[Rfam]
RNA: c-di-GMP-I riboswitch aptamer
Organism: Betaproteobacteria bacterium SCN2
RNA sequence: AUCUGACAAGGGCAAACCCGUCGCGAGGCGGGGACGCAAAAUCUCCGGUCUGGAAUGCGCCAGAUAGCGGGAUGACCGGA
Numbered sequence: 001a002u003c004u005g006a007c008a009a010g011g012g013c014a015a016a017c018c019c020g021u022c023g024c025g026a027g028g029c030g031g032g033g034a035c036g037c038a039a040a041a042u043c044u045c046c047g048g049u050c051u052g053g054a055a056u057g058c059g060c061c062a063g064a065u066a067g068c069g070g071g072a073u074g075a076c077c078g079g080a
Stems, first nucleotide, its partner, number of pairs: 012037002017032006041073003045070003048065006